[Rfam]
RNA sequence: GAUGCAAUAGGGAAGGCACUCAAGGACGGUUGGCACACCCCUGUCAUUGAUGGGUUCGCAUCAGCGAAUCCGGAAGGAGGUGAUGCCAUGGAAGUAAAGGAUGCCGUAACGUUGAUGUUCAUGUUCGGCAUGUUUAUUCUCGCUUUACUUUCCUACUUAAAAAAGAAGUAGACCUCCCUUGAGCCUUGGAACCCGAGAGGUCUACCGCUUGGUUAUUCCUUGCGCCGAUCGCCUUGAGGGCAAUCUAUUGUAGUGAGGUCGCGGAUGCUGGAACAUUCGCG
Numbered sequence: 001g002a003u004g005c006a007a008u009a010g011g012g013a014a015g016g017c018a019c020u021c022a023a024g025g026a027c028g029g030u031u032g033g034c035a036c037a038c039c040c041c042u043g044u045c046a047u048u049g050a051u052g053g054g055u056u057c058g059c060a061u062c063a064g065c066g067a068a069u070c071c072g073g074a075a076g077g078a079g080g081u082g083a084u085g086c087c088a089u090g091g092a093a094g095u096a097a098a099g100g101a102u103g104c105c106g107u108a109a110c111g112u113u114g115a116u117g118u119u120c121a122u123g124u125u126c127g128g129c130a131u132g133u134u135u136a137u138u139c140u141c142g143c144u145u146u147a148c149u150u151u152c153c154u155a156c157u158u159a160a161a162a163a164a165g166a167a168g169u170a171g172a173c174c175u176c177c178c179u180u181g182a183g184c185c186u187u188g189g190a191a192c193c194c195g196a197g198a199g200g201u202c203u204a205c206c207g208c209u210u211g212g213u214u215a216u217u218c219c220u221u222g223c224g225c226c227g228a229u230c231g232c233c234u235u236g237a238g239g240g241c242a243a244u245c246u247a248u249u250g251u252a253g254u255g256a257g258g259u260c261g262c263g264g265a266u267g268c269u270g271g272a273a274c275a276u277u278c279g280c281g
Stems, first nucleotide, its partner, number of pairs: 001254001003252003007248003011244001015226003019183007028173001030171002036082004040077003090152007103118002127144003229243001231241002260281008
Description
A member of the RNA family "BsrG" from Paenibacillus tyrphae, 281 nucleotides long. Gene Ontology terms of the family: toxin activity and autolysis. About the family: bsrE, bsrG and bsrH pair through intermolecular interactions with antisense sRNAs. They form type I toxin/antitoxin system that includes an mRNA encoding for a short, toxic peptide (bsrE, bsrG and bsrH) and an antitoxin that is comprised of an antisense RNA. bsrG encodes a 39-amino-acid toxin, and the 180 nucleotide antisense sRNA called SR4 acts as the antitoxin (they overlap by 123 nucleotides). SR4 interaction with the 3'UTR of bsrG RNA promotes bsrG degradation and inhibits its translation. BsrG interferes with cell envelope biosynthesis, causes membrane invaginations and delocalisation of the cell wall synthesis and initiates autolysis. bsrE RNA encodes 30 amino-acid toxin peptide. Its antitoxin gene, SR5 overlaps by 112 nucleotides at the 3' end of bsrE. SR5 also overlaps bsrG from nucleotide 163 to 52 (Rfam overlap check). The antitoxin SR5 promotes bsrE degradation but unlike SR4 it does not directly inhibits toxin mRNA translation. By type it is a small RNA.